[Rfam]
RNA: Mammalian CPEB3 ribozyme
RNA sequence: AGAGGUUACAGGUGUGAGGCCAUAGCAGAUGCACUCAGGGUGUGGCCCUGUCAGAUUUCAAUGAAUCUGUGAAUUAUGCU
Numbered sequence: 001a002g003a004g005g006u007u008a009c010a011g012g013u014g015u016g017a018g019g020c021c022a023u024a025g026c027a028g029a030u031g032c033a034c035u036c037a038g039g040g041u042g043u044g045g046c047c048c049u050g051u052c053a054g055a056u057u058u059c060a061a062u063g064a065a066u067c068u069g070u071g072a073a074u075u076a077u078g079c080u
Stems, first nucleotide, its partner, number of pairs: 016048001018047004024080004029075001031043003052069007